[Rfam]
RNA sequence: UUGGAUAUUGAUAUUAUUCUAAGUAAAAGGCUAUUAAAUAAAGGAGCAAUACCAAAUUUCUUGUUCUAUCAAGAGAUUUGGUAUUGCUCCUUUAUU
Numbered sequence: 001u002u003g004g005a006u007a008u009u010g011a012u013a014u015u016a017u018u019c020u021a022a023g024u025a026a027a028a029g030g031c032u033a034u035u036a037a038a039u040a041a042a043g044g045a046g047c048a049a050u051a052c053c054a055a056a057u058u059u060c061u062u063g064u065u066c067u068a069u070c071a072a073g074a075g076a077u078u079u080g081g082u083a084u085u086g087c088u089c090c091u092u093u094a095u096u
Stems, first nucleotide, its partner, number of pairs: 040093013054079003058075005